[Rfam]
RNA sequence: UUUUAUCCCAAAGGGGAGUAGCGUCCGGAUGUUUAACCGGAAACAAAGUCGUCAGUUCAUGGAUCUUCAUCCAUCGGCUUUGUUGGCAUGUUUUAAUUAAUGAUAACCAUGUCUAGCAAGACCUUUGCCUAAUGUUGGCAGAGGUCUUUUUUGUUUUCUGAAAAUACCCUGCC
Numbered sequence: 001u002u003u004u005a006u007c008c009c010a011a012a013g014g015g016g017a018g019u020a021g022c023g024u025c026c027g028g029a030u031g032u033u034u035a036a037c038c039g040g041a042a043a044c045a046a047a048g049u050c051g052u053c054a055g056u057u058c059a060u061g062g063a064u065c066u067u068c069a070u071c072c073a074u075c076g077g078c079u080u081u082g083u084u085g086g087c088a089u090g091u092u093u094u095a096a097u098u099a100a101u102g103a104u105a106a107c108c109a110u111g112u113c114u115a116g117c118a119a120g121a122c123c124u125u126u127g128c129c130u131a132a133u134g135u136u137g138g139c140a141g142a143g144g145u146c147u148u149u150u151u152u153g154u155u156u157u158c159u160g161a162a163a164a165u166a167c168c169c170u171g172c173c
Stems, first nucleotide, its partner, number of pairs: 025040003042084010059074005085173004090168001
Dot-bracket structure: ........................(((..........))).((((((((((.......(((((......)))))))))))))))((((.(.............................................................................).))))

Manganese Mn2+ riboswitch aptamer (yybP-ykoY): a 173-nucleotide RNA from Bacillus licheniformis. A reference for the family is Argaman et al. (2001), "Novel small RNA-encoding genes in the intergenic regions of Escherichia coli", Curr Biol. This RNA was originally discovered in E. coli during a large scale screen and was named SraF. The family was later found to exist upstream of related families of protein genes in many bacteria, including the the yybP and ykoK genes in B. subtilis. The specific functions of these proteins are unknown, but this structured RNA element may be involved in their genetic regulation as a riboswitch. The organism belongs to Bacillus licheniformis, within Bacteria. It scores 45 bits against the family's covariance model.